RNA sequence: AUGCAUCCAAAAGGAAUUGAACCUUUGACUUCCCAAUUAUGAUUUGGGUGCUUUUACCAUUCAACCAUGGAUUU
Numbered sequence: 001a002u003g004c005a006u007c008c009a010a011a012a013g014g015a016a017u018u019g020a021a022c023c024u025u026u027g028a029c030u031u032c033c034c035a036a037u038u039a040u041g042a043u044u045u046g047g048g049u050g051c052u053u054u055u056a057c058c059a060u061u062c063a064a065c066c067a068u069g070g071a072u073u074u
Stems, first nucleotide, its partner, number of pairs: 003074001005072004010026005039068003044064007